[Rfam]
RNA sequence: UGUCUCCUCCAACUCUCCUUGAAUUGGAUUUAGCCCGCAACCGAAAGGUGUGCGGGCUUUUUUUU
Numbered sequence: 001u002g003u004c005u006c007c008u009c010c011a012a013c014u015c016u017c018c019u020u021g022a023a024u025u026g027g028a029u030u031u032a033g034c035c036c037g038c039a040a041c042c043g044a045a046a047g048g049u050g051u052g053c054g055g056g057c058u059u060u061u062u063u064u065u
Stems, first nucleotide, its partner, number of pairs: 008028005014022002032058008

Betaproteobacteria toxic small RNA: a 65-nucleotide sequence from Noviherbaspirillum autotrophicum. For this family Rfam cites "Identification of small RNAs abundant in Burkholderia cenocepacia biofilms reveal putative regulators with a potential role in carbon and iron metabolism" (Sass et al., Sci Rep, 2017). The family has 51 seed sequences and 951 matches in Rfam 15.1. Overexpression in amino aid rich medium attenuates growth, suggesting role in repressing amino acid intake and metabolism. Pairs were carried over by alignment from the consensus structure, which was predicted with WAR. It scores 64 bits against the family's covariance model. NCBI's taxonomy places the organism under Bacteria, Pseudomonadati, Burkholderiales, Oxalobacteraceae, Noviherbaspirillum.